[Rfam]
RNA sequence: CAGCAUUUGAUACUAACUGAGCUAUCUAUAUCUUAUCUUUGUGCCAAAGGCUUAUGAUGUGUUGUGAUAGCUGGUGUACGAAGUACAGUAUUAAAAUAAAGUUAUAAGUCUCUUAAUCCUGGUUGUAAAGAUACACCCUGAGUUAUAACUCAAAGUUACAACU
Numbered sequence: 001c002a003g004c005a006u007u008u009g010a011u012a013c014u015a016a017c018u019g020a021g022c023u024a025u026c027u028a029u030a031u032c033u034u035a036u037c038u039u040u041g042u043g044c045c046a047a048a049g050g051c052u053u054a055u056g057a058u059g060u061g062u063u064g065u066g067a068u069a070g071c072u073g074g075u076g077u078a079c080g081a082a083g084u085a086c087a088g089u090a091u092u093a094a095a096a097u098a099a100a101g102u103u104a105u106a107a108g109u110c111u112c113u114u115a116a117u118c119c120u121g122g123u124u125g126u127a128a129a130g131a132u133a134c135a136c137c138c139u140g141a142g143u144u145a146u147a148a149c150u151c152a153a154a155g156u157u158a159c160a161a162c163u
Base pairs, nucleotide, nucleotide: 003086005084006083007082008081016075017074018073020072021071022070023069024068025067026066027061028060029059030058031057032056033054035052037050038049039048040047100157101156102155121136124133125132126131139152140151141150142149143148

The family of this 163-nucleotide RNA sequence from Otolemur garnettii is "Small Cajal body specific RNA 1". For this family Rfam cites "Cajal body-specific small nuclear RNAs: a novel class of 2'-O-methylation and pseudouridylation guide RNAs" (Darzacq et al., EMBO J, 2002).